[Rfam]
RNA sequence: CUGCGAAUAUUCUCGCUGUUCUGGUUUUAUAAUGAUCAGGGCAGGCUAACCAUUCGCUACAUUAAGACCACGCAUGUGUCCCCAGACCUAGUUCUUUACCUAGUUCUGGCUAUCUAAAUGCGGGUGAUAAAC
Numbered sequence: 001c002u003g004c005g006a007a008u009a010u011u012c013u014c015g016c017u018g019u020u021c022u023g024g025u026u027u028u029a030u031a032a033u034g035a036u037c038a039g040g041g042c043a044g045g046c047u048a049a050c051c052a053u054u055c056g057c058u059a060c061a062u063u064a065a066g067a068c069c070a071c072g073c074a075u076g077u078g079u080c081c082c083c084a085g086a087c088c089u090a091g092u093u094c095u096u097u098a099c100c101u102a103g104u105u106c107u108g109g110c111u112a113u114c115u116a117a118a119u120g121c122g123g124g125u126g127a128u129a130a131a132c
Stems, first nucleotide, its partner, number of pairs: 003057003016044011067125003072121002082109005088103004

About this RNA
The record is a 132-nucleotide RNA from Erinaceus europaeus, which matches "Small nucleolar RNA SNORA72" in Rfam. U72 is a member of the H/ACA class of snoRNAs. The snoRNA gene is located in intron 4 of the ribosomal L30 protein gene in human, mouse and chicken. It is annotated as an H/ACA-box small nucleolar RNA. The sequence is in the family's curated seed alignment. Pairs were carried over by alignment from the consensus structure, which was predicted with PFOLD. NCBI's taxonomy places the organism under Eukaryota, Euteleostomi, Mammalia, Laurasiatheria, Erinaceus.